Description: The family of this 64-nucleotide sequence from Brevundimonas halotolerans is "sul1 RNA". It scores 62 bits against the family's covariance model. The family's RNA type in Rfam is riboswitch. Lineage of the source: Bacteria > Pseudomonadota > Alphaproteobacteria > Caulobacterales > Brevundimonas.
RNA sequence: CCUGGACCCGCGCCACGAGAUGGCUUGCGGGUGGCUAUUCCGGCCGCCGAUCCGCCGGAGCAAC
Numbered sequence: 001c002c003u004g005g006a007c008c009c010g011c012g013c014c015a016c017g018a019g020a021u022g023g024c025u026u027g028c029g030g031g032u033g034g035c036u037a038u039u040c041c042g043g044c045c046g047c048c049g050a051u052c053c054g055c056c057g058g059a060g061c062a063a064c
Base pairs, nucleotide, nucleotide: 006032007031008030009029010028011027012025039059040058041057042056043055044054